Shown here is a 422-nucleotide part of an RNA from Amniculicola lignicola, a member of the family "Eukaryotic large subunit ribosomal RNA".

[Rfam]
RNA sequence: UGACCUCAGAUCAGGUAGGGAUACCCACUGAACUUAAGCAUAUCAAUAAGCAGAGGAAAAGAAACCAACAGGGAUUACCCUAGUAACAGCGAGUGAAGUGGCAACAGCUCAAAUUUGAAAUCUAGCUCCCUUAGGGGUCUGAGUUGUAAUUUGUAGAGGGUGCUUUAGUAUUAGCUAUAGUCUAAGACCCUUAGAACAGGGCGUUACAGAGGGUGAGAAUCCCAUAUAUGGCCAGCAGCUCUUGCCUUGUAAAGCCCCUUCGACGAGUCGAGUUGUUUGGGAAUGCAGCUCUAAAUGGGAGGUAAAUUUCUUCUAAAGCUAAAUAUUAGCCAGAGACUAAUAGCGCACAAGUAGAGUGAUCGAAAGAUGAAAAGCACUUUGGAAAGAGAGUCAAAAAGCACGUGAAAUUGUUGAAAGGGAAG
Numbered sequence: 001u002g003a004c005c006u007c008a009g010a011u012c013a014g015g016u017a018g019g020g021a022u023a024c025c026c027a028c029u030g031a032a033c034u035u036a037a038g039c040a041u042a043u044c045a046a047u048a049a050g051c052a053g054a055g056g057a058a059a060a061g062a063a064a065c066c067a068a069c070a071g072g073g074a075u076u077a078c079c080c081u082a083g084u085a086a087c088a089g090c091g092a093g094u095g096a097a098g099u100g101g102c103a104a105c106a107g108c109u110c111a112a113a114u115u116u117g118a119a120a121u122c123u124a125g126c127u128c129c130c131u132u133a134g135g136g137g138u139c140u141g142a143g144u145u146g147u148a149a150u151u152u153g154u155a156g157a158g159g160g161u162g163c164u165u166u167a168g169u170a171u172u173a174g175c176u177a178u179a180g181u182c183u184a185a186g187a188c189c190c191u192u193a194g195a196a197c198a199g200g201g202c203g204u205u206a207c208a209g210a211g212g213g214u215g216a217g218a219a220u221c222c223c224a225u226a227u228a229u230g231g232c233c234a235g236c237a238g239c240u241c242u243u244g245c246c247u248u249g250u251a252a253a254g255c256c257c258c259u260u261c262g263a264c265g266a267g268u269c270g271a272g273u274u275g276u277u278u279g280g281g282a283a284u285g286c287a288g289c290u291c292u293a294a295a296u297g298g299g300a301g302g303u304a305a306a307u308u309u310c311u312u313c314u315a316a317a318g319c320u321a322a323a324u325a326u327u328a329g330c331c332a333g334a335g336a337c338u339a340a341u342a343g344c345g346c347a348c349a350a351g352u353a354g355a356g357u358g359a360u361c362g363a364a365a366g367a368u369g370a371a372a373a374g375c376a377c378u379u380u381g382g383a384a385a386g387a388g389a390g391u392c393a394a395a396a397a398g399c400a401c402g403u404g405a406a407a408u409u410g411u412u413g414a415a416a417g418g419g420a421a422g
Stems, first nucleotide, its partner, number of pairs: 024055001025053001028050002035042002065072002076103001078101002086094002106320004112151004118145002121142002125138003156261002158258003163254004168245003173240002178234001180232003186202001188201004205209001212222002270291007297314005354361002377388004
Rfam 15.1 lists 107,465 matches to the family in 2,616 species.
A search with the family's covariance model found it, with a score of 2970 bits.